[Rfam]
RNA sequence: ACCUCGGACGCGAAGGAGGUCGACGUCCAGGCCGCGUACGAAACCUCGAUGUCCAGCCUGCUCGUGGCCAUGUCGGGAGCGAAUUACAUCCACGACAUCG
Numbered sequence: 001a002c003c004u005c006g007g008a009c010g011c012g013a014a015g016g017a018g019g020u021c022g023a024c025g026u027c028c029a030g031g032c033c034g035c036g037u038a039c040g041a042a043a044c045c046u047c048g049a050u051g052u053c054c055a056g057c058c059u060g061c062u063c064g065u066g067g068c069c070a071u072g073u074c075g076g077g078a079g080c081g082a083a084u085u086a087c088a089u090c091c092a093c094g095a096c097a098u099c100g
Base pairs, nucleotide, nucleotide: 003012025032034061035060077098079096